Notes: Rfam assigns this 102-nucleotide RNA from Desulfosporosinus sp. OT to the family "dinG RNA". It is annotated as a small RNA.
[Rfam]
RNA sequence: AAUGAUACUUCUGCCUUGAACGCCUCACCGCAUUGGGCAGCCCGCGACGAAUGACGGGAUCAUGUUGGUUUGGGUUGGAAACUGAUACCCAUGCCGGCUGAU
Numbered sequence: 001a002a003u004g005a006u007a008c009u010u011c012u013g014c015c016u017u018g019a020a021c022g023c024c025u026c027a028c029c030g031c032a033u034u035g036g037g038c039a040g041c042c043c044g045c046g047a048c049g050a051a052u053g054a055c056g057g058g059a060u061c062a063u064g065u066u067g068g069u070u071u072g073g074g075u076u077g078g079a080a081a082c083u084g085a086u087a088c089c090c091a092u093g094c095c096g097g098c099u100g101a102u
Stems, first nucleotide, its partner, number of pairs: 011040005041058004045053001059102004064098002067095002071091005

NCBI's taxonomy places the organism under Bacteria, Clostridia, Eubacteriales, Desulfitobacteriaceae, Desulfosporosinus.